[Rfam]
RNA sequence: GUGCAGGGCGUCUAGGGUUCCGCUUCGUCAACUACCGCGAAGGUCUGGUCCGAGAGAUGCCAGCGCGUCGGCAAAUUCCGGCGCGAUACACGGCGGGGCAAAAUCCCGGGAGAC
Numbered sequence: 001g002u003g004c005a006g007g008g009c010g011u012c013u014a015g016g017g018u019u020c021c022g023c024u025u026c027g028u029c030a031a032c033u034a035c036c037g038c039g040a041a042g043g044u045c046u047g048g049u050c051c052g053a054g055a056g057a058u059g060c061c062a063g064c065g066c067g068u069c070g071g072c073a074a075a076u077u078c079c080g081g082c083g084c085g086a087u088a089c090a091c092g093g094c095g096g097g098g099c100a101a102a103a104u105c106c107c108g109g110g111a112g113a114c
Stems, first nucleotide, its partner, number of pairs: 007061006015051002020048002022045001023042006062087001064085008089109001091112001095107003
RNA: Guanidine-I riboswitch aptamer